The record is a 52-nucleotide RNA from Fuscibacter oryzae, which matches "ffh sRNA" in Rfam. The source organism's lineage runs through Bacteria, Pseudomonadati, Alphaproteobacteria, Paracoccaceae and Fuscibacter.
[Rfam]
RNA sequence: CAUGCAAGGGAUCGCCAUCUGCCAGCGCGUUGCGCCCGCAGGUGCCGUUUCG
Dot-bracket structure: ...............(((((((..((((...))))..)))))))........

Background: The literature on the family includes a 2009 paper in BMC Genomics by Meyer et al., "Identification of candidate structured RNAs in the marine organism 'Candidatus Pelagibacter ubique'".